[Rfam]
RNA sequence: AGCUGCCAGGAGUCUUAAUUUAUUCUGUAACCUUUGCUAUGUAAGGGUCUUUGGUGUUUUAAUGACUGUUCUUUGUGCC
Numbered sequence: 001a002g003c004u005g006c007c008a009g010g011a012g013u014c015u016u017a018a019u020u021u022a023u024u025c026u027g028u029a030a031c032c033u034u035u036g037c038u039a040u041g042u043a044a045g046g047g048u049c050u051u052u053g054g055u056g057u058u059u060u061a062a063u064g065a066c067u068g069u070u071c072u073u074u075g076u077g078c079c
Stems, first nucleotide, its partner, number of pairs: 008072004015062004024054002030048008
Stem loopII regulatory element in POLB: a 79-nucleotide RNA from Ochotona princeps. For this family Rfam cites "Hairpin structure within the 3'UTR of DNA polymerase beta mRNA acts as a post-transcriptional regulatory element and interacts with Hax-1" (Sarnowska et al., Nucleic Acids Res, 2007). The sequence is in the family's curated seed alignment.